[Rfam]
RNA: Archaeal small subunit ribosomal RNA, nucleotides 523 to 716
RNA sequence: CGUCUGUAGGUGGCUCGUAAAGUCUAAUGUCAAAUACCAGGGCUCAACCUUGGACCGGCAUUGGAGUACUCACGAGCUUGAGUACGGUAGAGGCAGAGGGAAUUCCAUGUGGAGCGGUGAAAUGCGUAGAGAUAUGGAGGAACACCAGUGGCGAAGGCGCUCUGCUGGGCCGAAACUGACACUGAGAGACGAAA
Numbered sequence: 001c002g003u004c005u006g007u008a009g010g011u012g013g014c015u016c017g018u019a020a021a022g023u024c025u026a027a028u029g030u031c032a033a034a035u036a037c038c039a040g041g042g043c044u045c046a047a048c049c050u051u052g053g054a055c056c057g058g059c060a061u062u063g064g065a066g067u068a069c070u071c072a073c074g075a076g077c078u079u080g081a082g083u084a085c086g087g088u089a090g091a092g093g094c095a096g097a098g099g100g101a102a103u104u105c106c107a108u109g110u111g112g113a114g115c116g117g118u119g120a121a122a123u124g125c126g127u128a129g130a131g132a133u134a135u136g137g138a139g140g141a142a143c144a145c146c147a148g149u150g151g152c153g154a155a156g157g158c159g160c161u162c163u164g165c166u167g168g169g170c171c172g173a174a175a176c177u178g179a180c181a182c183u184g185a186g187a188g189a190c191g192a193a194a
Stems, first nucleotide, its partner, number of pairs: 002190004007184001009183003013077006021070002023065009037053006081177003085172004092166007099143001103139008114125003151158002